[Rfam]
RNA: Glycine riboswitch aptamer
RNA sequence: CGAACCUCGGUGGGAGAGCCCUGACGGGCACACCGCCGACCACUCCUGUCAGGCGCCGAAGGAGCAAACCCUCCCCGGGAAACUCUCAGGCACCCGUACCGCCGAGGUGAG
Numbered sequence: 001c002g003a004a005c006c007u008c009g010g011u012g013g014g015a016g017a018g019c020c021c022u023g024a025c026g027g028g029c030a031c032a033c034c035g036c037c038g039a040c041c042a043c044u045c046c047u048g049u050c051a052g053g054c055g056c057c058g059a060a061g062g063a064g065c066a067a068a069c070c071c072u073c074c075c076c077g078g079g080a081a082a083c084u085c086u087c088a089g090g091c092a093c094c095c096g097u098a099c100c101g102c103c104g105a106g107g108u109g110a111g
Stems, first nucleotide, its partner, number of pairs: 006106008020053009055091003058087002062085003069077001